This 85-nucleotide sequence from Cytobacillus dafuensis belongs to the Rfam family "c-di-GMP-I riboswitch aptamer". Lineage of the source: Bacteria > Bacillati > Bacilli > Bacillaceae > Cytobacillus. It scores 83 bits against the family's covariance model.
RNA sequence: UAUUAGAAAAGGCAAAUUCAUUGAAAAAUGAAGACGCAAAGCUAAAGGGGCUAAAGUCGAUUGACUAUGCCAGCCAGUUACCGAA
Numbered sequence: 001u002a003u004u005a006g007a008a009a010a011g012g013c014a015a016a017u018u019c020a021u022u023g024a025a026a027a028a029u030g031a032a033g034a035c036g037c038a039a040a041g042c043u044a045a046a047g048g049g050g051c052u053a054a055a056g057u058c059g060a061u062u063g064a065c066u067a068u069g070c071c072a073g074c075c076a077g078u079u080a081c082c083g084a085a
Base pairs, nucleotide, nucleotide: 012037013036017032018031019030020029021028022027040079041078042077043076047075048074049071050070051069056065057064058063